[Rfam]
RNA sequence: AUUUUUUUUCUCAAUAUAAAACACUCAUGUCAAUAAAAUGAUUUGAAUCCGUU
Numbered sequence: 001a002u003u004u005u006u007u008u009u010c011u012c013a014a015u016a017u018a019a020a021a022c023a024c025u026c027a028u029g030u031c032a033a034u035a036a037a038a039u040g041a042u043u044u045g046a047a048u049c050c051g052u053u
Stems, first nucleotide, its partner, number of pairs: 011033001014030004
Plastid-atpF group II-D1 intron: a 53-nucleotide RNA from Pyrus ussuriensis x Pyrus communis. Rfam links the family to the GO term Group II intron splicing. The literature on the family includes a 2023 paper in Plant Commun by Richter et al., "Retrograde signaling in plants: A critical review focusing on the GUN pathway and beyond". About the family: Plastid atpF is a non-coding RNA (ncRNA) recognised in plastids. It has been reported in the intron group II-D1 region of ATP synthase (atpF) genes.